[Rfam]
RNA: L31-Firmicutes ribosomal protein leader
RNA sequence: CUAUGGCUUAGGCCAUGGCAGAAGGAG
Numbered sequence: 001c002u003a004u005g006g007c008u009u010a011g012g013c014c015a016u017g018g019c020a021g022a023a024g025g026a027g
Base pairs, nucleotide, nucleotide: 001018002017003016004015005014006013007012